RNA sequence: CCACUCUGGAAAGCGAUCCGAUCCCGGGAUCCGCCGAUGGUGAAAGCGCUCCGGCGCGAAUCUCUCAGGCACCGCGACAGAGGGGGA
Numbered sequence: 001c002c003a004c005u006c007u008g009g010a011a012a013g014c015g016a017u018c019c020g021a022u023c024c025c026g027g028g029a030u031c032c033g034c035c036g037a038u039g040g041u042g043a044a045a046g047c048g049c050u051c052c053g054g055c056g057c058g059a060a061u062c063u064c065u066c067a068g069g070c071a072c073c074g075c076g077a078c079a080g081a082g083g084g085g086g087a
Base pairs, nucleotide, nucleotide: 001085002084004082005081006080007079008078015031016030017029018028033070034069035068036066037065040064042062046057047056